[Rfam]
RNA sequence: CACACGCCUCCCGCACUACUCCAUUUCCAUAGGGCGGGGGAGCGGUCAAAAAGGAGGAACUAUCCGCCGGGCCGGCGGUGCGGCAGUGUGGAGACCUGUCGUAACGUCCGCGGGGUUCUGCUCCCCGUGGGCGAGGGGGUAUUUGCGGAGGCAUUGCCCUUACGGCCCUGGAAAAUGGCA
Numbered sequence: 001c002a003c004a005c006g007c008c009u010c011c012c013g014c015a016c017u018a019c020u021c022c023a024u025u026u027c028c029a030u031a032g033g034g035c036g037g038g039g040g041a042g043c044g045g046u047c048a049a050a051a052a053g054g055a056g057g058a059a060c061u062a063u064c065c066g067c068c069g070g071g072c073c074g075g076c077g078g079u080g081c082g083g084c085a086g087u088g089u090g091g092a093g094a095c096c097u098g099u100c101g102u103a104a105c106g107u108c109c110g111c112g113g114g115g116u117u118c119u120g121c122u123c124c125c126c127g128u129g130g131g132c133g134a135g136g137g138g139g140u141a142u143u144u145g146c147g148g149a150g151g152c153a154u155u156g157c158c159c160u161u162a163c164g165g166c167c168c169u170g171g172a173a174a175a176u177g178g179c180a
Base pairs, nucleotide, nucleotide: 008040009039010038011037012036013035014034016032017031018030064078065077066076067075069168070167071166072165073164074163079103080102081101082100083099084098085097086096088095089094106132107131108130109129110128111127112126113125114124135161136160137159138158139157140156141155144153145152146151
RNA: malK-I RNA
Organism: Flavonifractor sp. An306